[Rfam]
RNA: mir-1419 microRNA precursor family
RNA sequence: CGAUGGUGCCGCACAGUGCUCGGAGAUAUUGUCACGUGCUACCCCAUUCUGAUAUGAUAUCACCCAGCACCACGCGUGUCCAUUG
Numbered sequence: 001c002g003a004u005g006g007u008g009c010c011g012c013a014c015a016g017u018g019c020u021c022g023g024a025g026a027u028a029u030u031g032u033c034a035c036g037u038g039c040u041a042c043c044c045c046a047u048u049c050u051g052a053u054a055u056g057a058u059a060u061c062a063c064c065c066a067g068c069a070c071c072a073c074g075c076g077u078g079u080c081c082a083u084u085g
Stems, first nucleotide, its partner, number of pairs: 001085003005081002010078001016070005022064002025061004030056003035051001